[Rfam]
RNA sequence: UUGAAAAAUGAAGCGCCAGAACCGCAGAUAGGGCGGUUGACGAGGUAGAAGUGAUCGAAUUUUUCGGCGGAUGCUUCUCGCCCAUUCGUUCAGGGACGCAGGUCUUUCUACAAAUAGGAGAAGGUAAUUCUUCUGACAAAGGGAAAGGCAACGGACGAA
Numbered sequence: 001u002u003g004a005a006a007a008a009u010g011a012a013g014c015g016c017c018a019g020a021a022c023c024g025c026a027g028a029u030a031g032g033g034c035g036g037u038u039g040a041c042g043a044g045g046u047a048g049a050a051g052u053g054a055u056c057g058a059a060u061u062u063u064u065c066g067g068c069g070g071a072u073g074c075u076u077c078u079c080g081c082c083c084a085u086u087c088g089u090u091c092a093g094g095g096a097c098g099c100a101g102g103u104c105u106u107u108c109u110a111c112a113a114a115u116a117g118g119a120g121a122a123g124g125u126a127a128u129u130c131u132u133c134u135g136a137c138a139a140a141g142g143g144a145a146a147g148g149c150a151a152c153g154g155a156c157g158a159a
Base pairs, nucleotide, nucleotide: 020038021037022036023035024034025033047078048077049076050075051074055067056066057065058064079098080097082095083094102149103148104147105146106145107144108143116134117133118132119131120130121129122128